Annotation:
SAM riboswitch aptamer (S box leader): a 120-nucleotide sequence from Jiulongibacter sediminis. NCBI's taxonomy places the organism under Bacteria, Bacteroidota, Cytophagales, Leadbetterellaceae, Jiulongibacter.
RNA sequence: GAUUUAUAAAGACGAGGGGAGAGAAUAGGCUCUUUGAACCUCGGGCAACCUGUCAAAACUUUUGUAUAAGGUGCCAAUACCUACCCCCUGUGCCAUAACGGCCUUUGGGACUUAUAAACC
Numbered sequence: 001g002a003u004u005u006a007u008a009a010a011g012a013c014g015a016g017g018g019g020a021g022a023g024a025a026u027a028g029g030c031u032c033u034u035u036g037a038a039c040c041u042c043g044g045g046c047a048a049c050c051u052g053u054c055a056a057a058a059c060u061u062u063u064g065u066a067u068a069a070g071g072u073g074c075c076a077a078u079a080c081c082u083a084c085c086c087c088c089u090g091u092g093c094c095a096u097a098a099c100g101g102c103c104u105u106u107g108g109g110a111c112u113u114a115u116a117a118a119c120c
Stems, first nucleotide, its partner, number of pairs: 001120001003118006013043005021032003026083004044075004049071002054064001079112001084109003

Rfam describes the family as follows. The SAM riboswitch is found upstream of a number of genes which code for proteins involved in methionine or cysteine biosynthesis in Gram-positive bacteria. The base pairs follow the family's consensus structure, which is taken from published work.